RNA sequence: GAAGCGUCAACCCGGCACCGCUGCGGCGGGUCAGACCGGGACCGUUCCGCCGCAGGGCGGGACUCCC
Numbered sequence: 001g002a003a004g005c006g007u008c009a010a011c012c013c014g015g016c017a018c019c020g021c022u023g024c025g026g027c028g029g030g031u032c033a034g035a036c037c038g039g040g041a042c043c044g045u046u047c048c049g050c051c052g053c054a055g056g057g058c059g060g061g062a063c064u065c066c067c
Base pairs, nucleotide, nucleotide: 011040012039013038014037015036018029019028020027021026044063045062046061047060048059049058050057051056